Xanthomonas sRNA sX9: a 73-nucleotide sequence from Xanthomonas campestris.
NCBI's taxonomy places the organism under Bacteria, Pseudomonadati, Gammaproteobacteria, Lysobacterales, Xanthomonas campestris pv. campestris.
The family's consensus secondary structure was predicted with RNAalifold.
The literature on the family includes a 2011 paper in Nucleic Acids Res by Schmidtke et al., "Genome-wide transcriptome analysis of the plant pathogen Xanthomonas identifies sRNAs with putative virulence functions".
A search with the family's covariance model found it, with a score of 63 bits.
The family's RNA type in Rfam is small RNA.
RNA sequence: AUGUACCCCCACACACGCCGGUUCCUCCGCGCCGCACGCACCCACCUGGCGACUGCUCGCUACUUUGUUAGCC
Numbered sequence: 001a002u003g004u005a006c007c008c009c010c011a012c013a014c015a016c017g018c019c020g021g022u023u024c025c026u027c028c029g030c031g032c033c034g035c036a037c038g039c040a041c042c043c044a045c046c047u048g049g050c051g052a053c054u055g056c057u058c059g060c061u062a063c064u065u066u067g068u069u070a071g072c073c
Base pairs, nucleotide, nucleotide: 002015003014004013019034020033021032022031024029046071047070048069049068050067051066052065